[Rfam]
RNA sequence: CUGCAGGGAUGAGUGAGAACUGAACUCUCUCUUUCUGAUGGCUAAAUGGAGAAAGCAAAAGUUCUGAGUAGC
Number, nucleotide and partner (000 for none) at each position: 001c071002u070003g069004c068005a000006g000007g000008g000009a000010u000011g000012a000013g000014u000015g000016a000017g000018a000019a000020c000021u000022g000023a000024a000025c000026u000027c000028u000029c000030u000031c000032u000033u000034u000035c000036u000037g000038a000039u000040g000041g000042c000043u000044a000045a000046a000047u000048g000049g000050a000051g000052a000053a000054a000055g000056c000057a000058a000059a000060a000061g000062u000063u000064c000065u000066g000067a000068g004069u003070a002071g001072c000
The record is a 72-nucleotide RNA from Cavia porcellus, which matches "Small nucleolar RNA SNORD26" in Rfam. Gene Ontology terms of the family: nucleolus and RNA processing. Rfam 15.1 lists 451 matches to the family in 401 species. Rfam classes the family as a C/D-box small nucleolar RNA.